[Rfam]
RNA sequence: ACUGGUUCGAGCCAGUAAAAAAAGGCCGAUAAGCUCGAAGCGUUCCACUCUUAGAGUGGAGGAGGCA
Numbered sequence: 001a002c003u004g005g006u007u008c009g010a011g012c013c014a015g016u017a018a019a020a021a022a023a024g025g026c027c028g029a030u031a032a033g034c035u036c037g038a039a040g041c042g043u044u045c046c047a048c049u050c051u052u053a054g055a056g057u058g059g060a061g062g063a064g065g066c067a
Base pairs, nucleotide, nucleotide: 001016002015003014004013006039007038008037009036010035011034025066026065027064033041043061044060045059046058047057048056049055050054
Pistol ribozyme: a 67-nucleotide RNA from Paenibacillus elgii. The base pairs follow the family's consensus structure, which is taken from published work. Taxonomically the source falls in Paenibacillus elgii (Bacteria, Bacillati, Bacillota, Paenibacillaceae). Gene Ontology term of the family: catalytic activity. Rfam's curators put it in the seed alignment.